[Rfam]
RNA sequence: ACCCUCCUGGUGCUUACCACAGGCUGUAUGCUUACACUGAGUGUAUAGAAAGAGAAGGUAGAAUAAACCUACCCCAUAUAUGCUUCAGCCCAGGACCUGUGCCUGGUCUGUAUUGUGAAUGGGGAAACAUAG
Numbered sequence: 001a002c003c004c005u006c007c008u009g010g011u012g013c014u015u016a017c018c019a020c021a022g023g024c025u026g027u028a029u030g031c032u033u034a035c036a037c038u039g040a041g042u043g044u045a046u047a048g049a050a051a052g053a054g055a056a057g058g059u060a061g062a063a064u065a066a067a068c069c070u071a072c073c074c075c076a077u078a079u080a081u082g083c084u085u086c087a088g089c090c091c092a093g094g095a096c097c098u099g100u101g102c103c104u105g106g107u108c109u110g111u112a113u114u115g116u117g118a119a120u121g122g123g124g125a126a127a128c129a130u131a132g
Stems, first nucleotide, its partner, number of pairs: 003058003007054002020043002026037002029034001072124006086110003090106005
This 132-nucleotide RNA sequence from Chlorocebus sabaeus belongs to the Rfam family "Small nucleolar RNA SNORA51".
The match comes from Rfam's covariance-model search (127 bits).
By type it is an H/ACA-box small nucleolar RNA.
Taxonomically the source falls in Chlorocebus (Eukaryota, Bilateria, Craniata, Cercopithecinae).
Rfam describes the family as follows. ACA51 is a member of the H/ACA class of snoRNA that guide the sites of modification of uridines to pseudouridines.